[Rfam]
RNA sequence: CUCUUAUCGAGAGCUGGCGGAGGGACUGGCCCGAUGAAGCCCGGCAACCGGCCUCUUAGAACCCAGGUACGGUGCCAAUUCCUGCAGGAUUUCUCCUGGCAGAUGAGAG
Numbered sequence: 001c002u003c004u005u006a007u008c009g010a011g012a013g014c015u016g017g018c019g020g021a022g023g024g025a026c027u028g029g030c031c032c033g034a035u036g037a038a039g040c041c042c043g044g045c046a047a048c049c050g051g052c053c054u055c056u057u058a059g060a061a062c063c064c065a066g067g068u069a070c071g072g073u074g075c076c077a078a079u080u081c082c083u084g085c086a087g088g089a090u091u092u093c094u095c096c097u098g099g100c101a102g103a104u105g106a107g108a109g
Stems, first nucleotide, its partner, number of pairs: 001109008013042001016041003022032003026084001028082002043076004048072002050068001052066001080101001085098005
RNA: SAM riboswitch aptamer (S box leader)
Organism: Neomoorella thermoacetica